This 251-nucleotide RNA sequence from Silurus meridionalis belongs to the Rfam family "RNase MRP". Rfam classes the family as a ribozyme.

RNA sequence: GCGCAUGCCUGAAUACUUGCUCUCUAAGCUACGAGCUGAGAACUCGGUUUCUCCCGCGGCGCUUAGGGGAAAGUCCCCGGACCCGGAACAGAGAUGUUCUGCCUGAACCGCAGCUAUGAGCUUGUAACGAUACCACUUCCUGCUAAGACGUCACUUCCGGGCUGAGCAGAGUAUCACAAGCCAUGUUGGUCAUUCAAAUAGAUAUGCAGGUACUGCUACUGCAACAGAACGGGGCUCAUUCUCAGGAUGCG
Numbered sequence: 001g002c003g004c005a006u007g008c009c010u011g012a013a014u015a016c017u018u019g020c021u022c023u024c025u026a027a028g029c030u031a032c033g034a035g036c037u038g039a040g041a042a043c044u045c046g047g048u049u050u051c052u053c054c055c056g057c058g059g060c061g062c063u064u065a066g067g068g069g070a071a072a073g074u075c076c077c078c079g080g081a082c083c084c085g086g087a088a089c090a091g092a093g094a095u096g097u098u099c100u101g102c103c104u105g106a107a108c109c110g111c112a113g114c115u116a117u118g119a120g121c122u123u124g125u126a127a128c129g130a131u132a133c134c135a136c137u138u139c140c141u142g143c144u145a146a147g148a149c150g151u152c153a154c155u156u157c158c159g160g161g162c163u164g165a166g167c168a169g170a171g172u173a174u175c176a177c178a179a180g181c182c183a184u185g186u187u188g189g190u191c192a193u194u195c196a197a198a199u200a201g202a203u204a205u206g207c208a209g210g211u212a213c214u215g216c217u218a219c220u221g222c223a224a225c226a227g228a229a230c231g232g233g234g235c236u237c238a239u240u241c242u243c244a245g246g247a248u249g250c251g
Stems, first nucleotide, its partner, number of pairs: 002251005008246005015211006023067007038053005072236002075234004087098004099113004117183002120181006130174004140169004150162003213221001215219001